[Rfam]
RNA: mir-8364 microRNA precursor family
Organism: Pristionchus pacificus
RNA sequence: UCUUCAUUUUGCACACUCUCUCGCCUCUCUGAUAGGUGAGAGAGUGUGAAGAAUGAAGAGA
Numbered sequence: 001u002c003u004u005c006a007u008u009u010u011g012c013a014c015a016c017u018c019u020c021u022c023g024c025c026u027c028u029c030u031g032a033u034a035g036g037u038g039a040g041a042g043a044g045u046g047u048g049a050a051g052a053a054u055g056a057a058g059a060g061a
Stems, first nucleotide, its partner, number of pairs: 001059007010050001012048006019041004